[Rfam]
RNA: tRNA
Organism: Chryseobacterium hagamense
RNA sequence: GCAGGAAUGGUGGAAUUGGCAGACACACCUGAUUUAGGCUCAGGUUUUUGGGGGUUCGAGUCCCUCUUCCUGUA
Numbered sequence: 001g002c003a004g005g006a007a008u009g010g011u012g013g014a015a016u017u018g019g020c021a022g023a024c025a026c027a028c029c030u031g032a033u034u035u036a037g038g039c040u041c042a043g044g045u046u047u048u049u050g051g052g053g054g055u056u057c058g059a060g061u062c063c064c065u066c067u068u069c070c071u072g073u074a
Stems, first nucleotide, its partner, number of pairs: 001073007010026003028044005050066005